[Rfam]
RNA sequence: GUCCAUGUAUUCAUCUCAAUCCACAUGUGUUGAAGUGGAUUGGAGUGGAAUUAAACUAAAUUCCAUUCUAUUCCACUCCAACACAUGUGGAUUGAUGUGGAUACACAA
Numbered sequence: 001g002u003c004c005a006u007g008u009a010u011u012c013a014u015c016u017c018a019a020u021c022c023a024c025a026u027g028u029g030u031u032g033a034a035g036u037g038g039a040u041u042g043g044a045g046u047g048g049a050a051u052u053a054a055a056c057u058a059a060a061u062u063c064c065a066u067u068c069u070a071u072u073c074c075a076c077u078c079c080a081a082c083a084c085a086u087g088u089g090g091a092u093u094g095a096u097g098u099g100g101a102u103a104c105a106c107a108a
Stems, first nucleotide, its partner, number of pairs: 006105009016095017035076005041070003045066003
Rfam assigns this 108-nucleotide RNA from Miscanthus lutarioriparius to the family "MIR5565 microRNA precursor family". The base pairs follow the family's consensus structure, which was predicted with RNAalifold. Gene Ontology terms of the family: RISC complex and miRNA-mediated post-transcriptional gene silencing.